[Rfam]
RNA sequence: GGCUGUGUGGGUCUCUGGCGUGAUGAUUUGGGACAUGGAUUUUUAAAAAAUCACAUUGCCAGGGAUUACUACACUGUC
Numbered sequence: 001g002g003c004u005g006u007g008u009g010g011g012u013c014u015c016u017g018g019c020g021u022g023a024u025g026a027u028u029u030g031g032g033a034c035a036u037g038g039a040u041u042u043u044u045a046a047a048a049a050a051u052c053a054c055a056u057u058g059c060c061a062g063g064g065a066u067u068a069c070u071a072c073a074c075u076g077u078c
Base pairs, nucleotide, nucleotide: 001078002077005074006073008071009070010069011066012065013064014063015062016061017060018059019058020057021055022054024053025052026051027050028049029048
Dot-bracket structure: ((..((.(((((((((((((((.((((((..................)))))))).))))))))))..))).))..))